RNA sequence: GGUUGAUCCAAAGGUAGUGCGUUAUCUCCAUUCACAGUCAGUUACAGAUCAAACUCCUUGCUCUACUCUUUCCUCCCUUUUCAGUAGUGCACUUGACUAGUCAUUU
Numbered sequence: 001g002g003u004u005g006a007u008c009c010a011a012a013g014g015u016a017g018u019g020c021g022u023u024a025u026c027u028c029c030a031u032u033c034a035c036a037g038u039c040a041g042u043u044a045c046a047g048a049u050c051a052a053a054c055u056c057c058u059u060g061c062u063c064u065a066c067u068c069u070u071u072c073c074u075c076c077c078u079u080u081u082c083a084g085u086a087g088u089g090c091a092c093u094u095g096a097c098u099a100g101u102c103a104u105u106u
Stems, first nucleotide, its partner, number of pairs: 001102005007096002010094002014090002016085001018083002021080001037067001040064002
RNA: Y RNA